[Rfam]
RNA sequence: UAGUCUGAUGCCAAGAUCCCGGACAACCAGGCAGGACACGAAAAGACAAUGACAUGUCUCCUCCCGGCGCUUGCCGGAGCAAAUACCAUCUACGGAGCCG
Numbered sequence: 001u002a003g004u005c006u007g008a009u010g011c012c013a014a015g016a017u018c019c020c021g022g023a024c025a026a027c028c029a030g031g032c033a034g035g036a037c038a039c040g041a042a043a044a045g046a047c048a049a050u051g052a053c054a055u056g057u058c059u060c061c062u063c064c065c066g067g068c069g070c071u072u073g074c075c076g077g078a079g080c081a082a083a084u085a086c087c088a089u090c091u092a093c094g095g096a097g098c099c100g
Base pairs, nucleotide, nucleotide: 003012033062034061035060077098080095
RNA: Pyrrolysine insertion sequence mttB